Shown here is a 61-nucleotide RNA, a member of the family "Gag/pol translational readthrough site".
Rfam links the family to the GO term viral translational readthrough.

RNA sequence: UAGGGAAGUCGGGGCUCAGACCCCCUCCCUGAGCCUAGGGUAACUUUGUCUGUGGAGGGGA
Numbered sequence: 001u002a003g004g005g006a007a008g009u010c011g012g013g014g015c016u017c018a019g020a021c022c023c024c025c026u027c028c029c030u031g032a033g034c035c036u037a038g039g040g041u042a043a044c045u046u047u048g049u050c051u052g053u054g055g056a057g058g059g060g061a
Stems, first nucleotide, its partner, number of pairs: 008041003012036004016031001019028001022060006
Rfam 15.1 lists 3,368 matches to the family in 94 species. On this family, see Wills et al., EMBO J 1994: "Pseudoknot-dependent read-through of retroviral gag termination codons: importance of sequences in the spacer and loop 2". The sequence is in the family's curated seed alignment. Rfam classes the family as a cis-regulatory element.